The record is a 108-nucleotide sequence from Acer yangbiense, which matches "MIR396 microRNA precursor family" in Rfam. Rfam 15.1 lists 744 matches to the family in 207 species. NCBI's taxonomy places the organism under Eukaryota, Magnoliopsida, Gunneridae, Sapindaceae, Acer. The base pairs follow the family's consensus structure, which was predicted with WAR. A reference for the family is Sunkar et al. (2005), "Cloning and characterization of microRNAs from rice", Plant Cell.
[Rfam]
RNA sequence: GGUCAUGCUUUUCCACAGCUUUCUUGAACUUUCUUUAAGUGCUAGCUAGCUCCUCCAUCAAAGCUACAUGCUUUGAAAGCUCAAGAAAGCUGUGGGAGAACAUGACAA
Numbered sequence: 001g002g003u004c005a006u007g008c009u010u011u012u013c014c015a016c017a018g019c020u021u022u023c024u025u026g027a028a029c030u031u032u033c034u035u036u037a038a039g040u041g042c043u044a045g046c047u048a049g050c051u052c053c054u055c056c057a058u059c060a061a062a063g064c065u066a067c068a069u070g071c072u073u074u075g076a077a078a079g080c081u082c083a084a085g086a087a088a089g090c091u092g093u094g095g096g097a098g099a100a101c102a103u104g105a106c107a108a
Stems, first nucleotide, its partner, number of pairs: 003105005013095003017091006024084004029079005